[Rfam]
Nucleotides: 108
Stems, first nucleotide, its partner, number of pairs: 001108008013043005021032003026079001028077002044071004049067002052063004075100001080097006
Number, partner (000 for none) and nucleotide at each position: 001108u002107u003106c004105u005104u006103a007102u008101c009000c010000a011000g012000a013043g014042a015041g016040g017039u018000g019000g020000a021032g022031g023030g024000a025000c026079a027000u028077g029076g030023c031022c032021c033000u034000a035000c036000g037000a038000a039017a040016c041015c042014u043013c044071g045070g046069c047068a048000a049067c050066a051000g052063g053062u054061u055060c056000u057000g058000a059000u060055g061054a062053a063052u064000a065000c066050u067049g068047u069046g070045c071044c072000a073000a074000u075100u076029c077028c078000u079026u080097c081096a082095g083094a084093c085092a086000u087000a088000a089000a090000u091000u092085u093084g094083u095082c096081u097080g098000g099000u100075a101008g102007a103006u104005g105004a106003g107002a108001a
The record is a 108-nucleotide sequence from Pseudoneobacillus rhizosphaerae, which matches "SAM riboswitch aptamer (S box leader)" in Rfam. NCBI's taxonomy places the organism under Bacteria, Bacilli, Caryophanales, Bacillaceae, Pseudoneobacillus. Clan: SAM clan. The family's consensus secondary structure is taken from published work.